RNA sequence: UUUUUUUGAAGUAGAAAAGGCACUCUACGCACCCGAAAGGGUACCUGAGAUGUUGGAUACGCCGCCCAACCAAAAAAU
Numbered sequence: 001u002u003u004u005u006u007u008g009a010a011g012u013a014g015a016a017a018a019g020g021c022a023c024u025c026u027a028c029g030c031a032c033c034c035g036a037a038a039g040g041g042u043a044c045c046u047g048a049g050a051u052g053u054u055g056g057a058u059a060c061g062c063c064g065c066c067c068a069a070c071c072a073a074a075a076a077a078u
Stems, first nucleotide, its partner, number of pairs: 002077007011028005019063003030047001031042004052070005
This 78-nucleotide RNA from Gemella sp. GL1.1 belongs to the Rfam family "skipping-rope RNA". Rfam classes the family as a small RNA.